Background:
M-box riboswitch aptamer (ykoK leader): a 167-nucleotide RNA sequence from Salisediminibacterium selenitireducens. Taxonomically the source falls in Salisediminibacterium selenitireducens (Bacteria, Bacillati, Bacilli, Salisediminibacterium). Rfam links the family to the GO terms regulation of gene expression and response to magnesium ion.

RNA sequence: UGAAUCCCUCGUUAGGUGAGGCUCCUGCAGUGGAGACAUGCUGAUGCCCAACAACGUCCAAAGACGCCAAUGGGUUGAACAGGAACCAUCGACAUAAGGUGGUUUUUAACGCAGCUGAGCGCCGCUCUAUGCCCUGCAGUGCUAAAGCUCAACGAAUGGAGGAAAAA
Numbered sequence: 001u002g003a004a005u006c007c008c009u010c011g012u013u014a015g016g017u018g019a020g021g022c023u024c025c026u027g028c029a030g031u032g033g034a035g036a037c038a039u040g041c042u043g044a045u046g047c048c049c050a051a052c053a054a055c056g057u058c059c060a061a062a063g064a065c066g067c068c069a070a071u072g073g074g075u076u077g078a079a080c081a082g083g084a085a086c087c088a089u090c091g092a093c094a095u096a097a098g099g100u101g102g103u104u105u106u107u108a109a110c111g112c113a114g115c116u117g118a119g120c121g122c123c124g125c126u127c128u129a130u131g132c133c134c135u136g137c138a139g140u141g142c143u144a145a146a147g148c149u150c151a152a153c154g155a156a157u158g159g160a161g162g163a164a165a166a167a
Base pairs, nucleotide, nucleotide: 005163006162007161009159010158011153012152013097015149016148017147020143021142022141025139026138027137028136029135030134032133033132040115041114042113043112046075047074048073049072050071055066056065057064058063082106083105084104085103088100089099090098117127118126119125
M-box riboswitch, also know as ykoK leader is described as a metaloregulatory RNA that sense divalent metals and function as a genetic control element of genes related to divalent metal transport in bacteria. It was first reported upstream of the B.subtilis ykoK gene and genes with related functions in other bacteria.